The family of this 158-nucleotide RNA from Hibiscus trionum is "U12 minor spliceosomal RNA".
The organism belongs to Hibiscus, within Eukaryota.
The match comes from Rfam's covariance-model search (93 bits).
A reference for the family is Tarn and Steitz (1997), "Pre-mRNA splicing: the discovery of a new spliceosome doubles the challenge", Trends Biochem Sci.

[Rfam]
RNA sequence: UUGCCUUAAACUAAUGAGUAAGGAAAACAAAGCGAGCGGUGGGAGCUGCUCGCCGCGCCCGACCUAUAAGUUGCGCAAGAAUUUGUUGAGGGGUUAUAGGCUGGCUGAGCGUUGACGCUGCGCUUACUUUGCGCAGAACUCGUUCGUGCGGGCCUCCC
Dot-bracket structure: ...(((((..........)))))........((((((((......)))))))).((((..............))))................(....(((((.(..(((.(((.....(((((.......))))).))).).))....).)))))..)